RNA: MIR8024 microRNA precursor family
Organism: Solanum lycopersicum
RNA sequence: UUGCAAGAUUUGAUGACUUCAUCUUGCGUACUUUGAGGAUUUGGAGACUUCAGCUUGAUACUUGGAGGAUUUGAAAACUUCAAUU
Numbered sequence: 001u002u003g004c005a006a007g008a009u010u011u012g013a014u015g016a017c018u019u020c021a022u023c024u025u026g027c028g029u030a031c032u033u034u035g036a037g038g039a040u041u042u043g044g045a046g047a048c049u050u051c052a053g054c055u056u057g058a059u060a061c062u063u064g065g066a067g068g069a070u071u072u073g074a075a076a077a078c079u080u081c082a083a084u085u
Stems, first nucleotide, its partner, number of pairs: 001083003005079001009075005017067005025058001027057002032053002035050003